[Rfam]
The family of this 81-nucleotide RNA from Equus caballus is "mir-590 microRNA precursor family". The organism belongs to Equus, within Eukaryota. The base pairs follow the family's consensus structure, which was predicted with RNAalifold. Rfam 15.1 lists 119 matches to the family in 117 species. The sequence is in the family's curated seed alignment.
RNA sequence: CAAUCAGAAACGAGCUUAUUCAUAAAAGUACAGUAUAAUCCAGUAAACCUGUAAUUUUAUGUAUAAGCUAGUCUCUGAUUG
Numbered sequence: 001c002a003a004u005c006a007g008a009a010a011c012g013a014g015c016u017u018a019u020u021c022a023u024a025a026a027a028g029u030a031c032a033g034u035a036u037a038a039u040c041c042a043g044u045a046a047a048c049c050u051g052u053a054a055u056u057u058u059a060u061g062u063a064u065a066a067g068c069u070a071g072u073c074u075c076u077g078a079u080u081g
Base pairs, nucleotide, nucleotide: 001081002080003079004078005077006076007075008074010072011071013069014068015067016066017065018064019063021061022060023059024058025057026056027055029053030052031051032050033049